[Rfam]
Shown here is a 134-nucleotide sequence from Octodon degus, a member of the family "Small nucleolar RNA SNORA58". Its Rfam clan is "SNORA44 clan". Rfam links the family to the GO terms nucleolus and RNA processing. By type it is an H/ACA-box small nucleolar RNA. NCBI's taxonomy places the organism under Eukaryota, Euteleostomi, Boreoeutheria, Glires, Octodon. For this family Rfam cites "RNomics: an experimental approach that identifies 201 candidates for novel, small, non-messenger RNAs in mouse" (Huttenhofer et al., EMBO J, 2001).
RNA sequence: GGGCAUGCAUGUAGACCUUGCCCGGCUCUCUGUGGCCAGCCAAGGGGGACAGUGUGUGCCAGAGCGAUGUGGAGCUCCUGCCAGCUCUGGCCGGCCGAACCCAUGGCCGGGGGUCCCACAGGGCUCCGACAUUG
Numbered sequence: 001g002g003g004c005a006u007g008c009a010u011g012u013a014g015a016c017c018u019u020g021c022c023c024g025g026c027u028c029u030c031u032g033u034g035g036c037c038a039g040c041c042a043a044g045g046g047g048g049a050c051a052g053u054g055u056g057u058g059c060c061a062g063a064g065c066g067a068u069g070u071g072g073a074g075c076u077c078c079u080g081c082c083a084g085c086u087c088u089g090g091c092c093g094g095c096c097g098a099a100c101c102c103a104u105g106g107c108c109g110g111g112g113g114u115c116c117c118a119c120a121g122g123g124c125u126c127c128g129a130c131a132u133u134g
Base pairs, nucleotide, nucleotide: 003059004058005057006056007055008054016045017044018043019042020041022039024037071127072126073125074124076123079120080119091110092109093108094107095106